Shown here is an 83-nucleotide RNA from Pongo abelii, a member of the family "mir-548 microRNA precursor family". The family's consensus secondary structure was predicted with WAR. Rfam 15.1 lists 3,009 matches to the family in 27 species. On this family, see Witten et al., BMC Biol 2010: "Ultra-high throughput sequencing-based small RNA discovery and discrete statistical biomarker analysis in a collection of cervical tumours and matched controls". A search with the family's covariance model found it, with a score of 91 bits. Gene Ontology terms of the family: miRNA-mediated post-transcriptional gene silencing and RISC complex.
RNA sequence: AUUUAGGUCGAUGCAAAAGUAAUUGUAGUUUUGCCAUUGAAAGUAAUGGCAAAAACUGCAAUUACUUUUGCAUCGACCUAAAU
Numbered sequence: 001a002u003u004u005a006g007g008u009c010g011a012u013g014c015a016a017a018a019g020u021a022a023u024u025g026u027a028g029u030u031u032u033g034c035c036a037u038u039g040a041a042a043g044u045a046a047u048g049g050c051a052a053a054a055a056c057u058g059c060a061a062u063u064a065c066u067u068u069u070g071c072a073u074c075g076a077c078c079u080a081a082a083u
Base pairs, nucleotide, nucleotide: 001083002082003081004080005079006078007077008076009075010074011073012072013071014070015069016068017067018066019065020064021063022062023061024060025059026058027057028056029055030053031052032051033050034049035048036047037046038045039044